The family of this 75-nucleotide sequence from Crocodylus porosus is "Mammalian CPEB3 ribozyme".
[Rfam]
Nucleotides: 075
Base pairs, nucleotide, nucleotide: 013043015040019075020074021073022072023071025069026038027037028036047064048063050061051060052059053058
Number, partner (000 for none) and nucleotide at each position: 001000a002000a003000c004000u005000g006000a007000c008000a009000u010000a011000a012000u013043g014000a015040c016000c017000a018000u019075a020074g021073c022072a023071g024000u025069a026038g027037c028036a029000c030000u031000c032000a033000u034000g035000c036028u037027g038026c039000a040015g041000a042000c043013c044000u045000g046000u047064c048063a049000a050061a051060u052059u053058c054000u055000a056000a057000u058053g059052a060051a061050u062000c063048u064047g065000u066000g067000a068000a069025u070000u071023c072022u073021g074020c075019u